[Rfam]
Nucleotides: 092
Stems, first nucleotide, its partner, number of pairs: 004086007
Number, partner (000 for none) and nucleotide at each position: 001000g002000c003000a004086g005085g006084a007083a008082g009081c010080c011000u012000g013000u014000g015000a016000u017000g018000u019000c020000u021000c022000a023000g024000c025000c026000a027000c028000g029000a030000u031000g032000u033000c034000u035000g036000a037000a038000c039000c040000u041000g042000g043000c044000u045000g046000a047000a048000g049000g050000a051000a052000c053000u054000u055000g056000u057000g058000a059000a060000g061000a062000u063000g064000a065000a066000c067000c068000u069000u070000u071000a072000g073000g074000c075000u076000c077000u078000g079000a080010g081009g082008c083007u084006u085005c086004c087000a088000g089000g090000g091000g092000a
This 92-nucleotide sequence from Anas platyrhynchos belongs to the Rfam family "Small nucleolar RNA SNORD91 family".
The organism belongs to Anas platyrhynchos, within Eukaryota.
Rfam classes the family as a C/D-box small nucleolar RNA.